[Rfam]
RNA sequence: ACUGUUUAAUAAACGGGCGUGACCACCUAAUGAUGCGCCGAGGAUGAGAAAGACAAUCAACCCAUAUCUCGCUGGUUUUCUCUAGUUAAACGAGAAAUCAGAGCAACUGAUACAAACGGUUAACAUAUCGUUUUGGUAAAAUUUUCGGUUACAAAUUCACGGAAAACAUGACCUUAAUAAACUAAUCCAGUGCUUAUCCUCGGCAAAGCUGAAGGUGCUUCUGCCCGGUUAAAAAACAUAGGUAGCCGCAAGGCCGAAAGGCUGUGAACGGCUAUUGA
Numbered sequence: 001a002c003u004g005u006u007u008a009a010u011a012a013a014c015g016g017g018c019g020u021g022a023c024c025a026c027c028u029a030a031u032g033a034u035g036c037g038c039c040g041a042g043g044a045u046g047a048g049a050a051a052g053a054c055a056a057u058c059a060a061c062c063c064a065u066a067u068c069u070c071g072c073u074g075g076u077u078u079u080c081u082c083u084a085g086u087u088a089a090a091c092g093a094g095a096a097a098u099c100a101g102a103g104c105a106a107c108u109g110a111u112a113c114a115a116a117c118g119g120u121u122a123a124c125a126u127a128u129c130g131u132u133u134u135g136g137u138a139a140a141a142u143u144u145u146c147g148g149u150u151a152c153a154a155a156u157u158c159a160c161g162g163a164a165a166a167c168a169u170g171a172c173c174u175u176a177a178u179a180a181a182c183u184a185a186u187c188c189a190g191u192g193c194u195u196a197u198c199c200u201c202g203g204c205a206a207a208g209c210u211g212a213a214g215g216u217g218c219u220u221c222u223g224c225c226c227g228g229u230u231a232a233a234a235a236a237c238a239u240a241g242g243u244a245g246c247c248g249c250a251a252g253g254c255c256g257a258a259a260g261g262c263u264g265u266g267a268a269c270g271g272c273u274a275u276u277g278a
Stems, first nucleotide, its partner, number of pairs: 003238005241276008249266001252263004
Notes: Shown here is a 278-nucleotide part of an RNA from archaeon HR01, a member of the family "Archaeal large subunit ribosomal RNA". The literature on the family includes a 2001 paper in Science by Yusupov et al., "Crystal structure of the ribosome at 5.5 A resolution". It scores 2028 bits against the family's covariance model.